[Rfam]
RNA sequence: AGUAACACUGGCGGGUCGACUGUCGACUCCAGUGUCGCAGGGGCCUCCUCCCGGCCCCGGAAAGCGGUUU
Numbered sequence: 001a002g003u004a005a006c007a008c009u010g011g012c013g014g015g016u017c018g019a020c021u022g023u024c025g026a027c028u029c030c031a032g033u034g035u036c037g038c039a040g041g042g043g044c045c046u047c048c049u050c051c052c053g054g055c056c057c058c059g060g061a062a063a064g065c066g067g068u069u070u
Base pairs, nucleotide, nucleotide: 003037005035006034007033008032040058041057042056043055044054045053

Rfam assigns this 70-nucleotide RNA from Actinoplanes digitatis to the family "hya RNA". It scores 58 bits against the family's covariance model. By type it is a cis-regulatory element.